A member of the RNA family "Glycine riboswitch aptamer" from Arenicella chitinivorans, 92 nucleotides long. Rfam's curators write: This family represents the bacterial glycine riboswitch.

RNA sequence: GAAAUCCUUGUGGAAGAGAGGCUGUACGCUGACAGCCCGCCGAAGGCGCAACGUGCUCGUAACCGCUCAGGCAAAAGGACCGCAAGGCUGAA
Numbered sequence: 001g002a003a004a005u006c007c008u009u010g011u012g013g014a015a016g017a018g019a020g021g022c023u024g025u026a027c028g029c030u031g032a033c034a035g036c037c038c039g040c041c042g043a044a045g046g047c048g049c050a051a052c053g054u055g056c057u058c059g060u061a062a063c064c065g066c067u068c069a070g071g072c073a074a075a076a077g078g079a080c081c082g083c084a085a086g087g088c089u090g091a092a
Stems, first nucleotide, its partner, number of pairs: 006087008020037006039072003042068002046066003052059002